The family of this 146-nucleotide RNA from Ovis aries is "Small nucleolar RNA SNORA12". U108 belongs to the H/ACA family of snoRNAs. The sequence is predicted to guide the pseudouridylation of the U372 residue in the 28S rRNA subunit. It is annotated as an H/ACA-box small nucleolar RNA. Rfam links the family to the GO terms RNA processing and nucleolus. For this family Rfam cites "A novel experimental approach for systematic identification of box H/ACA snoRNAs from eukaryotes" (Gu et al., Nucleic Acids Res, 2005).
[Rfam]
RNA sequence: GAUUGUGGUAGUUUUCUUUCUGGCACAUGUGUUAAGUUUUCAAAUGGGCCUGGCUCUGCCACACAGUUAUAUAGGAGUUGGCAGAGGCUUGACGACAGAGAGGUCUCUUUCUAGCCGUUCCUGCACCAGAGACGGCUCACAUGUGG
Numbered sequence: 001g002a003u004u005g006u007g008g009u010a011g012u013u014u015u016c017u018u019u020c021u022g023g024c025a026c027a028u029g030u031g032u033u034a035a036g037u038u039u040u041c042a043a044a045u046g047g048g049c050c051u052g053g054c055u056c057u058g059c060c061a062c063a064c065a066g067u068u069a070u071a072u073a074g075g076a077g078u079u080g081g082c083a084g085a086g087g088c089u090u091g092a093c094g095a096c097a098g099a100g101a102g103g104u105c106u107c108u109u110u111c112u113a114g115c116c117g118u119u120c121c122u123g124c125a126c127c128a129g130a131g132a133c134g135g136c137u138c139a140c141a142u143g144u145g146g
Stems, first nucleotide, its partner, number of pairs: 005062007022050003026046003030042002075138005080089003106132005